Rfam assigns this 141-nucleotide sequence from Anolis carolinensis to the family "Small nucleolar RNA SNORA64/SNORA10 family". A search with the family's covariance model found it, with a score of 46 bits. The family's RNA type in Rfam is H/ACA-box small nucleolar RNA. The family is grouped with related families in Rfam's "SNORA64 clan". About the family: This family belongs to the H/ACA class of small nucleolar RNAs (snoRNAs) which act as guides in the the modification of uridines to pseudouridines. This family includes the human snoRNAs U64 and ACA10 and mouse MBI-29. On this family, see Narayanan et al., EMBO J 1999: "Nucleolar localization signals of box H/ACA small nucleolar RNAs".
[Rfam]
RNA sequence: ACCCUCUCAGCUCUGCUCAGUGGCGCACAAUGCCAGUGGCGCUGCUGUCGUUUUCCGAGAGGGACAGUAAUGGAGUCCCUAAAUGCACGGCAGCGGGACCUGACUCAGUGGUCUCCCUGUUCCUUCCCGGACUCAACAAGC
Numbered sequence: 001a002c003c004c005u006c007u008c009a010g011c012u013c014u015g016c017u018c019a020g021u022g023g024c025g026c027a028c029a030a031u032g033c034c035a036g037u038g039g040c041g042c043u044g045c046u047g048u049c050g051u052u053u054u055c056c057g058a059g060a061g062g063g064a065c066a067g068u069a070a071u072g073g074a075g076u077c078c079c080u081a082a083a084u085g086c087a088c089g090g091c092a093g094c095g096g097g098a099c100c101u102g103a104c105u106c107a108g109u110g111g112u113c114u115c116c117c118u119g120u121u122c123c124u125u126c127c128c129g130g131a132c133u134c135a136a137c138a139a140g141c
Stems, first nucleotide, its partner, number of pairs: 002067001005064004011059003015055001019046008078130002083124001085122001092118002096114005
Dot-bracket structure: .(..((((..(((.(...((((((((............))))))))........).))).))))..)..........((...(.(......((..(((((.........)))))..))...).)....))...........